[Rfam]
RNA sequence: UCAAAGGGGAAACCUCUAAUCACUUCAAGGCAUUUUAUGAAGAAAAAACCCUGGAUCCAGGGUUUUUUCUUUCAUAAAAUGCUUUCAAGGGAUUAGAGGUUCCACCUUUC
Numbered sequence: 001u002c003a004a005a006g007g008g009g010a011a012a013c014c015u016c017u018a019a020u021c022a023c024u025u026c027a028a029g030g031c032a033u034u035u036u037a038u039g040a041a042g043a044a045a046a047a048a049c050c051c052u053g054g055a056u057c058c059a060g061g062g063u064u065u066u067u068u069c070u071u072u073c074a075u076a077a078a079a080u081g082c083u084u085u086c087a088a089g090g091g092a093u094u095a096g097a098g099g100u101u102c103c104a105c106c107u108u109u110c
Base pairs, nucleotide, nucleotide: 003109004108005107006106007105009103011101012100013099014098015097016096017095018094019093020092021091023089024088025087027085028084029083030082031081032080033079034078035077036076037075038074039073040072041071042070050061051060052059